[Rfam]
RNA sequence: UGCAAAUGAUGUUUUUCUCACGAUGGUCUUCCUAGCCUAUGAGGCUCUGACGACACUGCCUAAUGGCAACACUGAUGCAGUGUA
Numbered sequence: 001u002g003c004a005a006a007u008g009a010u011g012u013u014u015u016u017c018u019c020a021c022g023a024u025g026g027u028c029u030u031c032c033u034a035g036c037c038u039a040u041g042a043g044g045c046u047c048u049g050a051c052g053a054c055a056c057u058g059c060c061u062a063a064u065g066g067c068a069a070c071a072c073u074g075a076u077g078c079a080g081u082g083u084a
Base pairs, nucleotide, nucleotide: 001079002078003077004076

About this RNA:
A member of the RNA family "Small nucleolar RNA SNORD35" from Salmo salar, 84 nucleotides long. A reference for the family is Nicoloso et al. (1996), "Intron-encoded, antisense small nucleolar RNAs: the characterization of nine novel species points to their direct role as guides for the 2'-O-ribose methylation of rRNAs", J Mol Biol. From the family's description: U35 is a C/D box snoRNA located in intron 6 of ribosomal protein L13A and intron 3 of ribosomal protein S11 in humans and at homologous positions in mouse and chicken ribosomal protein genes. U35 guides the methylation of 2'-O-ribose sites in 28S rRNA. It is annotated as a C/D-box small nucleolar RNA. Clan: SNORD35 clan. Lineage of the source: Eukaryota > Metazoa > Chordata > Craniata > Salmo.